[Rfam]
RNA: mir-17 microRNA precursor family
Organism: Microtus ochrogaster
RNA sequence: UCUCUUGUGUUAAGGUGCAUCUAGUGCAGUUAGUGAAGUAGCUUAGACUCUAUUGCCCUAGAUGCCCCUUCUCACACAGGCUA
Numbered sequence: 001u002c003u004c005u006u007g008u009g010u011u012a013a014g015g016u017g018c019a020u021c022u023a024g025u026g027c028a029g030u031u032a033g034u035g036a037a038g039u040a041g042c043u044u045a046g047a048c049u050c051u052a053u054u055g056c057c058c059u060a061g062a063u064g065c066c067c068c069u070u071c072u073c074a075c076a077c078a079g080g081c082u083a
Stems, first nucleotide, its partner, number of pairs: 004080004009075002013069003017065008026056002029054001031052003
Dot-bracket structure: ...((((.((..(((.((((((((.((.(.(((................))).))).)))))))).)))....)).))))...